[Rfam]
Nucleotides: 156
Base pairs, nucleotide, nucleotide: 013123014122015121017049018048019047020046021045022044024043025042026041027040028039050091052089053088057084058083059082061080062079063078064077065076093118095116096114097113098112100110101109149156150155
Number, partner (000 for none) and nucleotide at each position: 001000a002000u003000a004000u005000u006000u007000a008000a009000c010000c011000u012000g013123g014122c015121a016000a017049g018048g019047g020046a021045g022044a023000u024043g025042c026041c027040a028039u029000g030000g031000u032000u033000a034000u035000g036000a037000a038000g039028g040027u041026g042025g043024u044022u045021u046020u047019c048018c049017c050091a051000g052089g053088g054000c055000a056000a057084a058083g059082c060000c061080u062079a063078u064077c065076c066000a067000u068000c069000c070000c071000a072000c073000u074000c075000u076065g077064g078063a079062u080061g081000u082059g083058c084057u085000g086000a087000c088053u089052c090000g091050u092000g093118u094000g095116a096114u097113u098112u099000c100110c101109c102000c103000a104000a105000a106000u107000g108000u109101g110100g111000g112098g113097a114096a115000u116095u117000g118093a119000a120000c121015u122014g123013u124000g125000u126000a127000a128000u129000u130000u131000g132000g133000g134000c135000a136000c137000a138000c139000a140000a141000g142000g143000u144000g145000g146000c147000u148000c149156a150155c151000a152000c153000c154000u155150g156149u
Rfam assigns this 156-nucleotide sequence from Otolemur garnettii to the family "U1 spliceosomal RNA".
The organism belongs to Otolemur, within Eukaryota.
The base pairs follow the family's consensus structure, which is taken from published work.
It is annotated as a spliceosomal small nuclear RNA.
U1 is a small nuclear RNA (snRNA) component of the spliceosome (involved in pre-mRNA splicing). Its 5' end forms complementary base pairs with the 5' splice junction, thus defining the 5' donor site of an intron.